Record summary:
Shown here is a 196-nucleotide sequence from Psychroflexus torquis, a member of the family "Group II catalytic intron D1-D4-3".

RNA sequence: CCAACCAUGAGGUUGGGACUGAAGAUUAUUUGUGAUUGAUUAAUGAGCAAAUACCGCUACAAAACUAGGUACUGACGGACAGAAACCGUACACGAGGCAUUUAUGCACGGGUAAGCAACCAAAUCAUUGUAAAGCCCAAAGAAUGCCAAAAGUGUAUUAAUGUAGAUACGGCAGGAAUCGAGUGAAAGAAGAUGUA
Numbered sequence: 001c002c003a004a005c006c007a008u009g010a011g012g013u014u015g016g017g018a019c020u021g022a023a024g025a026u027u028a029u030u031u032g033u034g035a036u037u038g039a040u041u042a043a044u045g046a047g048c049a050a051a052u053a054c055c056g057c058u059a060c061a062a063a064a065c066u067a068g069g070u071a072c073u074g075a076c077g078g079a080c081a082g083a084a085a086c087c088g089u090a091c092a093c094g095a096g097g098c099a100u101u102u103a104u105g106c107a108c109g110g111g112u113a114a115g116c117a118a119c120c121a122a123a124u125c126a127u128u129g130u131a132a133a134g135c136c137c138a139a140a141g142a143a144u145g146c147c148a149a150a151a152g153u154g155u156a157u158u159a160a161u162g163u164a165g166a167u168a169c170g171g172c173a174g175g176a177a178u179c180g181a182g183u184g185a186a187a188g189a190a191g192a193u194g195u196a
Stems, first nucleotide, its partner, number of pairs: 001016006044196002047193001060188001064183003068179002070176001072174003086171005097163003101159001103157006109137004115130004
Taxonomically the source falls in Psychroflexus torquis (Bacteria, Bacteroidota, Flavobacteriia, Psychroflexus).
Group II introns are found in rRNA, tRNA and mRNA of organelles in fungi, plants and protists, and also in mRNA in bacteria.